The family of this 126-nucleotide RNA sequence from Mesocricetus auratus is "Small nucleolar RNA SNORA28".
Gene Ontology terms of the family: nucleolus and RNA processing.
Rfam's curators write: ACA28 is a member of the H/ACA class of snoRNA that guide the sites of modification of uridines to pseudouridines.
Rfam classes the family as an H/ACA-box small nucleolar RNA.

RNA sequence: AAGCAACACUCUGUGGCAGAUAAACAAAACUAUCUGAUAUAAUUUGAGCUUGCUCUAGCAAAGAAGUCUACUCUAUUCCAAUGUUGUCUUCCCCACAAAAUAAGCUAUCAUAUAGGCUCAAGCAAU
Numbered sequence: 001a002a003g004c005a006a007c008a009c010u011c012u013g014u015g016g017c018a019g020a021u022a023a024a025c026a027a028a029a030c031u032a033u034c035u036g037a038u039a040u041a042a043u044u045u046g047a048g049c050u051u052g053c054u055c056u057a058g059c060a061a062a063g064a065a066g067u068c069u070a071c072u073c074u075a076u077u078c079c080a081a082u083g084u085u086g087u088c089u090u091c092c093c094c095a096c097a098a099a100a101u102a103a104g105c106u107a108u109c110a111u112a113u114a115g116g117c118u119c120a121a122g123c124a125a126u
Stems, first nucleotide, its partner, number of pairs: 009048003012041004017036006065118006074112003080106001082104001087100001089098002